[Rfam]
RNA sequence: UAAAAGGGUCGGUUGGCUAAUUAUGCCACGUUAGCCCUCGUUAGGCUAGUGCCGUAUGGAUAUCAAGACAUAUGGCCGACACAAUUUGUGGAACUCUCAUAGGGUUGGCUCGCUUGGCCGACCCUACAU
Numbered sequence: 001u002a003a004a005a006g007g008g009u010c011g012g013u014u015g016g017c018u019a020a021u022u023a024u025g026c027c028a029c030g031u032u033a034g035c036c037c038u039c040g041u042u043a044g045g046c047u048a049g050u051g052c053c054g055u056a057u058g059g060a061u062a063u064c065a066a067g068a069c070a071u072a073u074g075g076c077c078g079a080c081a082c083a084a085u086u087u088g089u090g091g092a093a094c095u096c097u098c099a100u101a102g103g104g105u106u107g108g109c110u111c112g113c114u115u116g117g118c119c120g121a122c123c124c125u126a127c128a129u
Stems, first nucleotide, its partner, number of pairs: 008080005014028004029051008052075007100126011
Description: U11 spliceosomal RNA: a 129-nucleotide RNA from Handroanthus impetiginosus. Pairs were carried over by alignment from the consensus structure, which is taken from published work.